A member of the RNA family "Bacillus sRNA ncr1575" from Planococcus rifietoensis, 196 nucleotides long. For this family Rfam cites "Identification of regulatory RNAs in Bacillus subtilis" (Irnov et al., Nucleic Acids Res, 2010). Lineage of the source: Bacteria > Bacillota > Caryophanales > Caryophanaceae > Planococcus.
RNA sequence: AUUCUGAAAUGAAACGAGUUGAUGGGUGGACAAUGCGUAACUAACCUAUAUUUUUAGUCAUUUGAAAUAGUUAUUUUUCGAAGACGAAAACAUAGGAUUAGUCUGCCCAUUUCAUCCAUAAGGUGUCGCUGGUUAUUUGGCGCACCCAAAGUGUACUGGCUAAUCCUUCCAAAUUUAGAUUUGGGAGGAUUUUUUU
Numbered sequence: 001a002u003u004c005u006g007a008a009a010u011g012a013a014a015c016g017a018g019u020u021g022a023u024g025g026g027u028g029g030a031c032a033a034u035g036c037g038u039a040a041c042u043a044a045c046c047u048a049u050a051u052u053u054u055u056a057g058u059c060a061u062u063u064g065a066a067a068u069a070g071u072u073a074u075u076u077u078u079c080g081a082a083g084a085c086g087a088a089a090a091c092a093u094a095g096g097a098u099u100a101g102u103c104u105g106c107c108c109a110u111u112u113c114a115u116c117c118a119u120a121a122g123g124u125g126u127c128g129c130u131g132g133u134u135a136u137u138u139g140g141c142g143c144a145c146c147c148a149a150a151g152u153g154u155a156c157u158g159g160c161u162a163a164u165c166c167u168u169c170c171a172a173a174u175u176u177a178g179a180u181u182u183g184g185g186a187g188g189a190u191u192u193u194u195u196u
Base pairs, nucleotide, nucleotide: 016113017112023109024108025107026106029103030102031101042100043099044098046096047095049094050093051092053090054089055088061082062081063080064079065078066077067076122147123146128141129140130139131138132137162191163190164189165188166187167186168185169184170183171182172181